RNA sequence: UGGGCUGGUCGAAAGACCCGGGUCCACCAAAUGGCGGGUGUCUUACCC
Numbered sequence: 001u002g003g004g005c006u007g008g009u010c011g012a013a014a015g016a017c018c019c020g021g022g023u024c025c026a027c028c029a030a031a032u033g034g035c036g037g038g039u040g041u042c043u044u045a046c047c048c
Base pairs, nucleotide, nucleotide: 001026002025003024004023005022006021007018008017009016010015
The family of this 48-nucleotide RNA sequence from Firmicutes bacterium CAG:95 is "DUF3800-XI RNA". It is one of the family's seed sequences. About the family: Actinobacteria, Firmicutes, Proteobacteria, Spirochaetes (1 example). Lineage of the source: Bacteria > Bacillati > Bacillota.